Rfam assigns this 61-nucleotide RNA sequence from Leptospirillum sp. Group III to the family "Fluoride riboswitch aptamer (crcB RNA motif)". On this family, see Baker et al., Science 2012: "Widespread genetic switches and toxicity resistance proteins for fluoride".
RNA sequence: CCGGCGGAUGGCGAUGGGGUUCGCCUAAUCCCGCAUUUCGGGUGAUGACUCCUACCAUGGG
Numbered sequence: 001c002c003g004g005c006g007g008a009u010g011g012c013g014a015u016g017g018g019g020u021u022c023g024c025c026u027a028a029u030c031c032c033g034c035a036u037u038u039c040g041g042g043u044g045a046u047g048a049c050u051c052c053u054a055c056c057a058u059g060g061g
Base pairs, nucleotide, nucleotide: 010025011024012023013022016052017051018050019049020048021047032042034040

Its family is annotated with positive regulation of gene expression and response to fluoride in the Gene Ontology.
The source organism's lineage runs through Bacteria, Pseudomonadati, Nitrospirota, Nitrospiraceae and Leptospirillum.